[Rfam]
RNA sequence: ACGACCUUACUUGAACAGGAUCUGUUCUAUAGGCUCGUACCUCUGUGUCCUUAAGACCUAAGGAGACAGGAACCAAAGUCUGGUGGAUGAAUCGUGGCCGCGUGAUCAGAGCGUGAUUAACGGUUCCCGGGGGUCUGUUGGAUUCCCCUGGUGCUGUAGAGGAUCGUUCCCAGGCAACUCAUACUUGCCUGAGAUGGUCACGCGGCUGUCUGACAGACU
Numbered sequence: 001a002c003g004a005c006c007u008u009a010c011u012u013g014a015a016c017a018g019g020a021u022c023u024g025u026u027c028u029a030u031a032g033g034c035u036c037g038u039a040c041c042u043c044u045g046u047g048u049c050c051u052u053a054a055g056a057c058c059u060a061a062g063g064a065g066a067c068a069g070g071a072a073c074c075a076a077a078g079u080c081u082g083g084u085g086g087a088u089g090a091a092u093c094g095u096g097g098c099c100g101c102g103u104g105a106u107c108a109g110a111g112c113g114u115g116a117u118u119a120a121c122g123g124u125u126c127c128c129g130g131g132g133g134u135c136u137g138u139u140g141g142a143u144u145c146c147c148c149u150g151g152u153g154c155u156g157u158a159g160a161g162g163a164u165c166g167u168u169c170c171c172a173g174g175c176a177a178c179u180c181a182u183a184c185u186u187g188c189c190u191g192a193g194a195u196g197g198u199c200a201c202g203c204g205g206c207u208g209u210c211u212g213a214c215a216g217a218c219u
Base pairs, nucleotide, nucleotide: 001038002037003035005033006032007031013027014026015025016024017023018022043069044068045067046066048064049063050062051061052060053059078218079217080216081215082214097206098205099204100203101202102201103200104199105198106197107196108195110168111167112166113165120157121156122155123154124153126151127150129148130147131146132145133144136141171191172190173189174188175187176186177185
Plant small nucleolar RNA U3: a 219-nucleotide sequence from Corymbia citriodora. Rfam links the family to the GO terms nucleolus and RNA processing. Rfam classes the family as a C/D-box small nucleolar RNA. On this family, see Zwieb, Nucleic Acids Res 1997: "The uRNA database". The family has 24 seed sequences and 3,759 matches in Rfam 15.1.